Rfam assigns this 100-nucleotide RNA sequence from Paucilactobacillus wasatchensis to the family "S10-Clostridia ribosomal protein leader". Rfam classes the family as a cis-regulatory leader. The literature on the family includes a 2020 paper in BMC Microbiol by Eckert and Weinberg, "Discovery of 20 novel ribosomal leader candidates in bacteria and archaea". The match comes from Rfam's covariance-model search (38 bits). The source organism's lineage runs through Bacteria, Bacillati, Bacillota, Bacilli and Paucilactobacillus.
[Rfam]
RNA sequence: GAACAGUGAUGAUGUGAAAGGUUGCGACACACCCGGCCGCUUUGCCACAGGAUGUGGCGGUAAUUUUCACGGAGCUAGUCAAAAUUUAAAAUAUUGACGA
Numbered sequence: 001g002a003a004c005a006g007u008g009a010u011g012a013u014g015u016g017a018a019a020g021g022u023u024g025c026g027a028c029a030c031a032c033c034c035g036g037c038c039g040c041u042u043u044g045c046c047a048c049a050g051g052a053u054g055u056g057g058c059g060g061u062a063a064u065u066u067u068c069a070c071g072g073a074g075c076u077a078g079u080c081a082a083a084a085u086u087u088a089a090a091a092u093a094u095u096g097a098c099g100a
Stems, first nucleotide, its partner, number of pairs: 014070003018067004025059002028056004078098003083095003